[Rfam]
RNA sequence: AUGCCUUAAACUUAUGAGUAAGGAAAAUAACAAUCUGGGUUAUGCCCAAAUCCUCACUACUACUGUGAGAGGAAGUUUUGAGCAGGUAAAGUUUGCCCCUAAGGUGGCCUGCCUGGGAGUCACAACCUGCCCA
Numbered sequence: 001a002u003g004c005c006u007u008a009a010a011c012u013u014a015u016g017a018g019u020a021a022g023g024a025a026a027a028u029a030a031c032a033a034u035c036u037g038g039g040u041u042a043u044g045c046c047c048a049a050a051u052c053c054u055c056a057c058u059a060c061u062a063c064u065g066u067g068a069g070a071g072g073a074a075g076u077u078u079u080g081a082g083c084a085g086g087u088a089a090a091g092u093u094u095g096c097c098c099c100u101a102a103g104g105u106g107g108c109c110u111g112c113c114u115g116g117g118a119g120u121c122a123c124a125a126c127c128u129g130c131c132c133a
Base pairs, nucleotide, nucleotide: 004023005022006021007020008019033051034050036048037047038046039045053069054068055067056066057065085131086130087129090128091127093125094124095123099117100116102114103113104112105111106110